The record is a 77-nucleotide RNA sequence from Mauremys mutica, which matches "Mammalian CPEB3 ribozyme" in Rfam. Its family is annotated with RNA nuclease activity in the Gene Ontology. The family's consensus secondary structure is taken from published work. Taxonomically the source falls in Mauremys (Eukaryota, Gnathostomata, Teleostomi, Geoemydidae). The match comes from Rfam's covariance-model search (67 bits).

RNA sequence: UAGGCCUAGCAGAGGGCUAUAACAGGAGCAUUCACAUUGCAGCCCUUGUCAGAUUCUCAGAAUCUUUGAAUCCUGCU
Numbered sequence: 001u002a003g004g005c006c007u008a009g010c011a012g013a014g015g016g017c018u019a020u021a022a023c024a025g026g027a028g029c030a031u032u033c034a035c036a037u038u039g040c041a042g043c044c045c046u047u048g049u050c051a052g053a054u055u056c057u058c059a060g061a062a063u064c065u066u067u068g069a070a071u072c073c074u075g076c077u
Stems, first nucleotide, its partner, number of pairs: 013046006021077001023075005028040003051065006